[Rfam]
RNA sequence: AGCUGCCUCAGUAGCCCAGUCGUUAGGUAUGUAACCUUUCCUUGUGAGAACGUUGGUUCGACUCCGCUUGCCGACAAUUUCAUAAGAAAAGUUGCAGAUCGAGCUGCUGAGUUACCCGGAGGGGG
Number, nucleotide and partner (000 for none) at each position: 001a000002g000003c000004u000005g000006c000007c125008u124009c123010a000011g115012u114013a113014g112015c111016c000017c109018a108019g107020u106021c000022g104023u103024u102025a000026g100027g099028u098029a000030u096031g095032u094033a093034a092035c091036c000037u090038u089039u088040c000041c086042u085043u084044g083045u082046g081047a080048g079049a078050a000051c000052g075053u074054u073055g072056g071057u070058u000059c066060g065061a000062c000063u000064c000065c060066g059067c000068u000069u000070g057071c056072c055073g054074a053075c052076a000077a000078u049079u048080u047081c046082a045083u044084a043085a042086g041087a000088a039089a038090a037091g035092u034093u033094g032095c031096a030097g000098a028099u027100c026101g000102a024103g023104c022105u000106g020107c019108u018109g017110a000111g015112u014113u013114a012115c011116c122117c121118g000119g000120a000121g117122g116123g009124g008125g007
RNA: Plasmodium RNA of unknown function RUF6-5
Organism: Plasmodium falciparum